[Rfam]
RNA: Alphaproteobacterial ar14
RNA sequence: GCGUGUCGGAUGUCUUCCUCCUCCCAGACACCGACGGUGAAUGCGGUACACCUCCUCCCGUGCCGUAUUCGAAAUCGAAGCCCGCUGCCUCCUCCUCCCGGCAGCGGGCUUUUUCU
Numbered sequence: 001g002c003g004u005g006u007c008g009g010a011u012g013u014c015u016u017c018c019u020c021c022u023c024c025c026a027g028a029c030a031c032c033g034a035c036g037g038u039g040a041a042u043g044c045g046g047u048a049c050a051c052c053u054c055c056u057c058c059c060g061u062g063c064c065g066u067a068u069u070c071g072a073a074a075u076c077g078a079a080g081c082c083c084g085c086u087g088c089c090u091c092c093u094c095c096u097c098c099c100g101g102c103a104g105c106g107g108g109c110u111u112u113u114u115c116u
Stems, first nucleotide, its partner, number of pairs: 007033003011030004038071010078111011
Dot-bracket structure: ......(((.((((............)))))))....((((((((((..............))))))))))......(((((((((((............))))))))))).....